RNA: DUF805 RNA
Organism: Marinifilum sp. N1E240
RNA sequence: UUAAAAUGGAGUUCAGACACCAUAUAAAAAAACGAGGCGCUACCGAAAAGCCUUACGAGUAGGAUGUAA
Number, nucleotide and partner (000 for none) at each position: 001u000002u000003a000004a000005a000006a023007u022008g021009g020010a000011g000012u000013u000014c000015a000016g000017a000018c000019a000020c009021c008022a007023u006024a000025u000026a000027a000028a000029a000030a000031a000032a000033c000034g000035a000036g052037g051038c050039g000040c000041u000042a000043c063044c062045g000046a000047a000048a000049a000050g038051c037052c036053u000054u000055a000056c000057g000058a000059g000060u000061a000062g044063g043064a000065u000066g000067u000068a000069a000